[Rfam]
RNA sequence: AAGAAGAAAGAAAGAGGCAGGGUCUGAUCCACAGCCUCUGUGGCAGCUGUUGAUCAGCCAUUGCCUCUCUCUUUCUCUCUG
Numbered sequence: 001a002a003g004a005a006g007a008a009a010g011a012a013a014g015a016g017g018c019a020g021g022g023u024c025u026g027a028u029c030c031a032c033a034g035c036c037u038c039u040g041u042g043g044c045a046g047c048u049g050u051u052g053a054u055c056a057g058c059c060a061u062u063g064c065c066u067c068u069c070u071c072u073u074u075c076u077c078u079c080u081g
Stems, first nucleotide, its partner, number of pairs: 008073004013068008022059001024057006032049004
RNA: mir-574 microRNA precursor family